[Rfam]
RNA sequence: CACAAACCGUUGAUUGAGAGUAAGUACAUUUGAUGGAGAUUUAUAGAGAGUUGUCGGAUGGUGCAAGACAAUAAUUAAAAUCAUUUGGAAUGGACUCAAGAGGGCAGACUGAAAUAUUUUUAUAAAGUAGGUACUGACGGAAACCUUGACCGUUACAACAAGGAGUAUGUGUUAGCAUAUGUAAAGUGGGUACUAUUGUACCAAUUUGGGUGGCACCGCAGAAGUUUAUUACAGCUUUUGUCCCUUUA
Numbered sequence: 001c002a003c004a005a006a007c008c009g010u011u012g013a014u015u016g017a018g019a020g021u022a023a024g025u026a027c028a029u030u031u032g033a034u035g036g037a038g039a040u041u042u043a044u045a046g047a048g049a050g051u052u053g054u055c056g057g058a059u060g061g062u063g064c065a066a067g068a069c070a071a072u073a074a075u076u077a078a079a080a081u082c083a084u085u086u087g088g089a090a091u092g093g094a095c096u097c098a099a100g101a102g103g104g105c106a107g108a109c110u111g112a113a114a115u116a117u118u119u120u121u122a123u124a125a126a127g128u129a130g131g132u133a134c135u136g137a138c139g140g141a142a143a144c145c146u147u148g149a150c151c152g153u154u155a156c157a158a159c160a161a162g163g164a165g166u167a168u169g170u171g172u173u174a175g176c177a178u179a180u181g182u183a184a185a186g187u188g189g190g191u192a193c194u195a196u197u198g199u200a201c202c203a204a205u206u207u208g209g210g211u212g213g214c215a216c217c218g219c220a221g222a223a224g225u226u227u228a229u230u231a232c233a234g235c236u237u238u239u240g241u242c243c244c245u246u247u248a
Stems, first nucleotide, its partner, number of pairs: 007103002015098004027087002031083002039075003050072006105136003108132003138152003189202005208244003218241009
T-box leader: a 248-nucleotide RNA from Ruminococcus bovis. The family's RNA type in Rfam is cis-regulatory leader. Rfam describes the family as follows. Uncharged tRNA acts as the effector for transcription antitermination of genes in the T-box leader family. T-boxes are found upstream of many aminoacyl-tRNA synthetase genes and some amino acid biosynthetic genes usually in Gram-positive bacteria. The anticodon of a specific tRNA base pairs to a specifier sequence within the T-box motif, and the NCCA acceptor tail of the tRNA base pairs to a conserved bulge in the T-box antiterminator hairpin.